[Rfam]
Rfam assigns this 267-nucleotide sequence from Bacillus oleivorans to the family "Bacterial large signal recognition particle RNA".
Nucleotides: 267
Base pairs, nucleotide, nucleotide: 001267002266003265004264005263006262010056011055012030013029014028015027017025019023034054035053036052037051038050063260064259065258067256068255069254073250074249075248076247077246080244081243082242083241084240085239086238087237088236089235093231094230097228098227099226100225101224102223105221106220107218108217109216116212117211118210119209120208121207122206123205124201125200126199127198128197129196130192131191133190134189135188136187137186139182140181141180142179143178149174150173151172152171157166158165159164
Number, partner (000 for none) and nucleotide at each position: 001267c002266c003265g004264u005263g006262c007000u008000a009000a010056g011055u012030g013029g014028g015027g016000a017025g018000g019023u020000a021000g022000c023019g024000g025017u026000g027015c028014c029013c030012u031000a032000u033000a034054c035053c036052c037051g038050c039000a040000a041000u042000c043000c044000g045000c046000u047000c048000u049000a050038g051037c052036g053035g054034g055011a056010c057000c058000g059000a060000a061000u062000u063260c064259c065258u066000u067256u068255c069254c070000u071000g072000a073250g074249g075248c076247u077246g078000u079000c080244u081243a082242u083241u084240u085239g086238u087237a088236g089235g090000g091000u092000c093231u094230g095000c096000c097228u098227c099226a100225a101224g102223u103000a104000a105221g106220u107218g108217g109216u110000g111000u112000u113000g114000a115000c116212g117211u118210u119209u120208g121207g122206g123205u124201c125200c126199u127198a128197c129196g130192c131191a132000a133190u134189g135188a136187g137186a138000a139182u140181c141180c142179a143178u144000g145000a146000a147000u148000c149174a150173u151172g152171u153000c154000a155000g156000g157166u158165c159164c160000g161000g162000a163000a164159g165158g166157a167000a168000g169000c170000a171152g172151c173150a174149u175000u176000a177000a178143g179142u180141g181140g182139a183000a184000c185000c186137u187136c188135u189134c190133a191131u192130g193000u194000g195000c196129c197128g198127u199126a200125g201124g202000g203000u204000u205123g206122c207121c208120u209119g210118a211117a212116c213000u214000g215000a216109g217108c218107u219000a220106a221105c222000u223102g224101c225100u226099u227098g228097g229000g230094u231093a232000a233000c234000g235089c236088c237087u238086a239085u240084g241083a242082g243081u244080a245000g246077c247076a248075g249074u250073c251000g252000a253000c254069g255068g256067a257000u258065a259064g260063g261000u262006g263005c264004a265003c266002g267001g
The base pairs follow the family's consensus structure, which is taken from published work.
Rfam classes the family as a non-coding RNA gene.
The signal recognition particle (SRP) is a universally conserved ribonucleoprotein involved in the co-translational targeting of proteins to membranes.